Shown here is an 88-nucleotide sequence from Halolactibacillus alkaliphilus, a member of the family "c-di-GMP-I riboswitch aptamer". About the family: GEMM was predicted in a large-scale screen for bacterial structured RNA regulatory elements. Genes associated with GEMM are involved in a diverse array of functions, including chemotaxis regulation, signal transduction, secretion and chitin. The match comes from Rfam's covariance-model search (74 bits).

[Rfam]
RNA sequence: CUAUGAUAAGGGCAAAGCUAUUGAAAAAUAGUGACGCAAAGCUUCAGGUCUUCGGUGAAUUUAAAACCAUGACGGCUGGGUUACCGAU
Numbered sequence: 001c002u003a004u005g006a007u008a009a010g011g012g013c014a015a016a017g018c019u020a021u022u023g024a025a026a027a028a029u030a031g032u033g034a035c036g037c038a039a040a041g042c043u044u045c046a047g048g049u050c051u052u053c054g055g056u057g058a059a060u061u062u063a064a065a066a067c068c069a070u071g072a073c074g075g076c077u078g079g080g081u082u083a084c085c086g087a088u
Stems, first nucleotide, its partner, number of pairs: 012037002017032006040082004045078003048073003055067002
Taxonomically the source falls in Halolactibacillus (Bacteria, Bacillati, Bacillota, Bacillaceae).